[Rfam]
RNA: Eukaryotic large subunit ribosomal RNA, nucleotides 1218 to 1701
RNA sequence: CACUCCAAAGUUUCCCUCAGGAUAGCUGGUGCUCGUUUCACCUGCAGUUUAACUUGGUAAAGUGAAUGGUUAGAGGUCUUGGGGCCAAAACGAUCUCAACUUAUUCUCAAACUUUAAAUGUGUAAGAAGCCUGACUUGCUGGCUUGGAGCCGGGUGUGGAAUGAGUACACCCAGUGGGCCACUUUUGGUAAGCAGAACUGGCGCUGUGAGAUGAACCGAACGCUGGGUUAAGGCUGGUGCAGAUGCUCAUCAGACCCCAAAAAGGUGUUGGUUGAUAUAGACAGCAGGACGGUGGUCAUGGAAGUCGCAAUCCACUAAGGAGUGUGUAACAAUCAACUAGCCUUGAAAACGGAUGGCGCUGGAGCUUUGGACCCAUACCCGGCCGUCGCUGACAAUGUAGAGCCCACGGGGGCUAAGCUGUGACGAGUAGGAGGGCCGCUGCGGUGAGCCCGUGGGCCUGGGUGGAGCUGCCGCAGGUGCACAA
Number, nucleotide and partner (000 for none) at each position: 001c435002a000003c433004u432005c431006c430007a000008a000009a000010g000011u024012u000013u022014c021015c020016c000017u000018c000019a000020g015021g014022a013023u000024a011025g000026c000027u000028g171029g170030u169031g168032c000033u000034c000035g000036u000037u000038u000039c000040a000041c000042c000043u000044g000045c000046a000047g000048u127049u126050u125051a000052a123053c122054u000055u120056g000057g000058u000059a000060a115061a113062g112063u000064g000065a000066a000067u109068g108069g107070u000071u000072a104073g000074a102075g101076g100077u000078c000079u099080u098081g097082g096083g095084g094085c000086c092087a000088a000089a000090a000091c000092g086093a000094u084095c083096u082097c081098a080099a079100c076101u075102u074103a000104u072105u000106c000107u069108c068109a067110a000111a000112c062113u061114u000115u060116a000117a000118a000119u000120g055121u000122g053123u052124a000125a050126g049127a048128a000129g155130c154131c153132u152133g151134a000135c149136u148137u147138g000139c000140u000141g000142g000143c000144u000145u000146g000147g137148a136149g135150c000151c133152g132153g131154g130155u129156g000157u000158g000159g000160a000161a000162u000163g000164a000165g000166u000167a000168c031169a030170c029171c028172c000173a000174g000175u000176g000177g000178g202179c201180c200181a199182c000183u197184u196185u195186u194187g193188g000189u000190a000191a000192g000193c187194a186195g185196a184197a183198c000199u181200g180201g179202c178203g000204c000205u000206g000207u218208g217209a000210g000211a000212u000213g000214a000215a000216c000217c208218g207219a000220a000221c000222g383223c382224u381225g380226g379227g000228u377229u000230a000231a000232g373233g372234c000235u000236g000237g000238u370239g000240c369241a000242g000243a000244u000245g365246c364247u000248c000249a000250u000251c000252a000253g000254a000255c000256c000257c000258c000259a000260a000261a000262a000263a344264g343265g342266u000267g341268u340269u339270g338271g337272u336273u335274g334275a333276u332277a000278u000279a000280g000281a000282c000283a000284g000285c000286a000287g000288g000289a000290c000291g313292g312293u000294g000295g000296u000297c307298a000299u000300g000301g000302a000303a000304g000305u000306c000307g297308c000309a000310a000311u000312c292313c291314a000315c319316u000317a000318a000319g315320g330321a000322g000323u000324g000325u329326g000327u000328a000329a325330c320331a000332a276333u275334c274335a273336a272337c271338u270339a269340g268341c267342c265343u264344u263345g000346a000347a000348a000349a000350c000351g000352g000353a000354u000355g000356g000357c000358g000359c000360u000361g000362g000363a000364g246365c245366u000367u000368u000369g240370g238371a000372c233373c232374c000375a000376u000377a228378c000379c226380c225381g224382g223383c222384c425385g424386u423387c422388g421389c420390u000391g418392a000393c000394a000395a000396u000397g000398u000399a000400g000401a000402g000403c000404c000405c000406a000407c000408g000409g000410g000411g000412g000413c000414u000415a000416a000417g000418c391419u000420g389421u388422g387423a386424c385425g384426a000427g000428u000429a000430g006431g005432a004433g003434g000435g001436c000437c479438g000439c476440u475441g474442c473443g472444g471445u470446g469447a000448g463449c462450c000451c000452g000453u000454g458455g000456g000457c000458c454459u000460g000461g000462g449463u448464g000465g000466a000467g000468c000469u446470g445471c444472c443473g442474c441475a440476g439477g000478u000479g437480c000481a000482c000483a000484a000